[Rfam]
RNA sequence: GUAUGAAGUGAUGCACGUCAUCUUUCGGGACUGACCUCUCAUGGAGAGAACAUUUCGACUUACUGAUCAUAC
Numbered sequence: 001g002u003a004u005g006a007a008g009u010g011a012u013g014c015a016c017g018u019c020a021u022c023u024u025u026c027g028g029g030a031c032u033g034a035c036c037u038c039u040c041a042u043g044g045a046g047a048g049a050a051c052a053u054u055u056c057g058a059c060u061u062a063c064u065g066a067u068c069a070u071a072c
Stems, first nucleotide, its partner, number of pairs: 001072006